About this RNA:
A member of the RNA family "Group II catalytic intron D1-D4-3" from Labilibaculum filiforme, 173 nucleotides long. NCBI's taxonomy places the organism under Bacteria, Pseudomonadati, Bacteroidia, Marinifilaceae, Labilibaculum. A reference for the family is Chu et al. (2001), "Control of branch-site choice by a group II intron", EMBO J.
Nucleotides: 173
Stems, first nucleotide, its partner, number of pairs: 001016001003014004028173001031170002037165001042159005049151003063148006074140003078136007086114004092107004
Number, partner (000 for none) and nucleotide at each position: 001016u002000u003014u004013g005012g006011g007000g008000u009000g010000a011006c012005c013004c014003a015000u016001g017000c018000a019000c020000u021000g022000a023000a024000g025000u026000a027000a028173g029000c030000c031170a032169a033000c034000c035000g036000g037165c038000a039000a040000a041000a042159g043158u044157c045156u046155g047000a048000a049151c050150u051149g052000a053000c054000g055000a056000a057000c058000a059000g060000g061000a062000a063148c064147g065146g066145g067144a068143u069000a070000u071000g072000a073000g074140g075139c076138a077000u078136u079135g080134u081133u082132a083131u084130u085000c086114g087113g088112g089111u090000a091000a092107g093106u094105a095104a096000g097000c098000a099000c100000a101000u102000c103000a104095u105094u106093g107092c108000a109000a110000a111089g112088c113087c114086c115000a116000a117000c118000g119000a120000g121000u122000a123000u124000c125000a126000a127000a128000a129000g130084g131083a132082u133081a134080g135079c136078g137000a138076u139075g140074u141000a142000g143068a144067u145066c146065c147064c148063g149051c150050a151049g152000g153000a154000u155046u156045a157044g158043a159042c160000g161000g162000a163000a164000g165037g166000a167000c168000a169032u170031u171000u172000a173028c